[Rfam]
RNA sequence: UCCAGUGGUAGUCAGCUGUCCAGAGCCGUCCAGUGCCUGCGAUAGUGUUACACUGCUGGGAGAUAAAAUUCAGGCAUUUCUCCUGGCUGCUGUUGUCACCGUUCUGGAGACAGCUGAUGCCAGAAAGAAGUGGCCCUGGGCUUCCCUGAGAGUGCGCUAAAGAUUUGCUUUCCCUCUUUAGCGCUAGUCUGGAAGCGUACAUG
Numbered sequence: 001u002c003c004a005g006u007g008g009u010a011g012u013c014a015g016c017u018g019u020c021c022a023g024a025g026c027c028g029u030c031c032a033g034u035g036c037c038u039g040c041g042a043u044a045g046u047g048u049u050a051c052a053c054u055g056c057u058g059g060g061a062g063a064u065a066a067a068a069u070u071c072a073g074g075c076a077u078u079u080c081u082c083c084u085g086g087c088u089g090c091u092g093u094u095g096u097c098a099c100c101g102u103u104c105u106g107g108a109g110a111c112a113g114c115u116g117a118u119g120c121c122a123g124a125a126a127g128a129a130g131u132g133g134c135c136c137u138g139g140g141c142u143u144c145c146c147u148g149a150g151a152g153u154g155c156g157c158u159a160a161a162g163a164u165u166u167g168c169u170u171u172c173c174c175u176c177u178u179u180a181g182c183g184c185u186a187g188u189c190u191g192g193a194a195g196c197g198u199a200c201a202u203g
Stems, first nucleotide, its partner, number of pairs: 001060009011051002015046006021039003071133001075127001083123005090116001092114001094112004099107002138198001140196006154184003158180006
Record summary
Small nucleolar RNA SNORA74: a 203-nucleotide RNA sequence from Trogon melanurus. Its family is annotated with RNA processing and nucleolus in the Gene Ontology. About the family: U19 belongs to the H/ACA class of snoRNAs. snoRNAs bind a number of proteins (including dyskerin, Gar1p and Nop10p in the case of the H/ACA class) to form snoRNP complexes. This class are thought to guide the sites of modification of uridines to pseudouridines by forming direct base pairing interactions with substrate RNAs. Targets may include ribosomal and spliceosomal RNAs but the exact functions of many snoRNAs, including U19, are not confirmed. Co-precipitation of U19 snoRNA with RNase MRP RNA suggests that U19 may be involved in pre-rRNA processing.